Notes:
This 148-nucleotide RNA sequence from Chelonoidis abingdonii belongs to the Rfam family "Small nucleolar RNA SNORD94". The base pairs follow the family's consensus structure, which was predicted with RNAalifold. The match comes from Rfam's covariance-model search (115 bits). By type it is a C/D-box small nucleolar RNA.

RNA sequence: AUGGCAAUGAUGAUUGGCGCAGGGGUACUGACCUCAGCUAGAUCAUGGGAGCUGAAUGUGAAUUCUGCUUAUUUUUCCAGUGUGACGAACAUGUGGUUGGCUGCCUGGAAACAGAUUCACAUGAAAACUUUGCCUAGAACUGAGCCAU
Numbered sequence: 001a002u003g004g005c006a007a008u009g010a011u012g013a014u015u016g017g018c019g020c021a022g023g024g025g026u027a028c029u030g031a032c033c034u035c036a037g038c039u040a041g042a043u044c045a046u047g048g049g050a051g052c053u054g055a056a057u058g059u060g061a062a063u064u065c066u067g068c069u070u071a072u073u074u075u076u077c078c079a080g081u082g083u084g085a086c087g088a089a090c091a092u093g094u095g096g097u098u099g100g101c102u103g104c105c106u107g108g109a110a111a112c113a114g115a116u117u118c119a120c121a122u123g124a125a126a127a128c129u130u131u132g133c134c135u136a137g138a139a140c141u142g143a144g145c146c147a148u
Stems, first nucleotide, its partner, number of pairs: 001148005